Shown here is an 89-nucleotide RNA sequence from Ectothiorhodospira mobilis, a member of the family "t44 RNA". The match comes from Rfam's covariance-model search (72 bits).
[Rfam]
RNA sequence: CACGCUUGAUCCAAGAAUCCACACAUGCGCCGACACGUACAGCUGGGUGCCCCCAGCGGGUUGCUGUGCGGGGCGCAUGGAGGCUCAAC
Number, nucleotide and partner (000 for none) at each position: 001c000002a000003c000004g000005c000006u000007u000008g000009a000010u000011c000012c000013a000014a000015g000016a000017a000018u000019c000020c000021a000022c000023a000024c079025a078026u077027g076028c075029g074030c073031c072032g000033a000034c000035a000036c070037g069038u068039a067040c066041a065042g064043c063044u000045g000046g000047g000048u000049g061050c060051c059052c058053c000054c000055a000056g000057c000058g052059g051060g050061u049062u000063g043064c042065u041066g040067u039068g038069c037070g036071g000072g031073g030074c029075g028076c027077a026078u025079g024080g000081a000082g000083g000084c000085u000086c000087a000088a000089c000
From the family's description: This family consists of a number of bacterial RNA genes of between 135 and 170 bases in length. The t44 gene has been identified in several species of enteric bacteria but homologs have also been identified in Pseudomonas and Coxiella species. The t44 gene is found between the map and rpsB genes in all species in the full alignment apart from Shigella flexneri. The function of this RNA is unknown. Rfam classes the family as a small RNA.